The record is an 81-nucleotide RNA sequence from Oryza sativa, which matches "Small nucleolar RNA U54" in Rfam. The family's consensus secondary structure was predicted with PFOLD. Its family is annotated with RNA processing and nucleolus in the Gene Ontology. For this family Rfam cites "The high diversity of snoRNAs in plants: identification and comparative study of 120 snoRNA genes from Oryza sativa" (Chen et al., Nucleic Acids Res, 2003). The organism belongs to Oryza sativa, within Eukaryota.
RNA sequence: AGCUCAGUGAUUGUAGUCACUUUUGUUGGUAAUAUACGCUAUGCUGACCAUAGUUUGAUGAUGAAUGAGAAUAUGAGAGCU
Numbered sequence: 001a002g003c004u005c006a007g008u009g010a011u012u013g014u015a016g017u018c019a020c021u022u023u024u025g026u027u028g029g030u031a032a033u034a035u036a037c038g039c040u041a042u043g044c045u046g047a048c049c050a051u052a053g054u055u056u057g058a059u060g061a062u063g064a065a066u067g068a069g070a071a072u073a074u075g076a077g078a079g080c081u
Base pairs, nucleotide, nucleotide: 001081002080003079004078005077